Annotation: A member of the RNA family "trpB ncRNA motif" from Enterococcus dispar, 102 nucleotides long. From the family's description: trpB ncRNA motif was reported as a strong cis regulatory motif candidate, with potential to be a cis regulatory riboswitch type, it have been identified in Firmicutes and Fusobacteria. Taxonomically the source falls in Enterococcus dispar (Bacteria, Bacillati, Bacillota, Lactobacillales). Its family is annotated with regulation of gene expression in the Gene Ontology. A search with the family's covariance model found it, with a score of 62 bits.

RNA sequence: UCCAUAGAUACAACUUUUUAGAGAACUCUAAAACUUGUAUCUAUGCUGGCAAUAUUGAGAUGAUUCCGCAUAGAGACAAUCUCUAUGCGGAUUUUGUUUACU
Numbered sequence: 001u002c003c004a005u006a007g008a009u010a011c012a013a014c015u016u017u018u019u020a021g022a023g024a025a026c027u028c029u030a031a032a033a034c035u036u037g038u039a040u041c042u043a044u045g046c047u048g049g050c051a052a053u054a055u056u057g058a059g060a061u062g063a064u065u066c067c068g069c070a071u072a073g074a075g076a077c078a079a080u081c082u083c084u085a086u087g088c089g090g091a092u093u094u095u096g097u098u099u100a101c102u
Stems, first nucleotide, its partner, number of pairs: 003045009015033001017032005065091011